Rfam assigns this 100-nucleotide RNA from Arabidopsis thaliana to the family "MIR158 microRNA precursor family". The literature on the family includes a 2002 paper in Genes Dev by Reinhart et al., "MicroRNAs in plants". Pairs were carried over by alignment from the consensus structure, which was predicted with RNAalifold. Its family is annotated with miRNA-mediated post-transcriptional gene silencing and RISC complex in the Gene Ontology. Taxonomically the source falls in Arabidopsis (Eukaryota, Pentapetalae, malvids, Camelineae).
Nucleotides: 100
Stems, first nucleotide, its partner, number of pairs: 003097008012088001014086003018082001020080010032069003036065002039062002042059007
Number, partner (000 for none) and nucleotide at each position: 001000a002000c003097a004096c005095g006094u007093c008092a009091u010090c011000u012088c013000u014086g015085u016084g017000c018082u019000u020080c021079u022078u023077u024076g025075u026074c027073u028072a029071c030000a031000c032069u033068u034067u035000u036065g037064g038000a039062a040061a041000a042059g043058g044057u045056g046055a047054u048053g049000a050000u051000a052000u053048c054047a055046u056045u057044g058043c059042u060000u061040u062039u063000c064037c065036c066000c067034a068033a069032a070000u071029g072028u073027a074026g075025a076024c077023a078022a079021a080020g081000c082018a083000a084016u085015a086014c087000c088012g089000u090010g091009a092008u093007g094006a095005c096004g097003u098000u099000a100000u